[Rfam]
RNA sequence: AGCUCCACAUGUAGGUGUGGAGGAAGAGUAUUGUUGUCAAGCUUUCCGUCAGAAGAUCCACCAGGAUAUCCUGA
Numbered sequence: 001a002g003c004u005c006c007a008c009a010u011g012u013a014g015g016u017g018u019g020g021a022g023g024a025a026g027a028g029u030a031u032u033g034u035u036g037u038c039a040a041g042c043u044u045u046c047c048g049u050c051a052g053a054a055g056a057u058c059c060a061c062c063a064g065g066a067u068a069u070c071c072u073g074a
Base pairs, nucleotide, nucleotide: 003022004021005020006019007018008017009016010015053069056067057066058065059064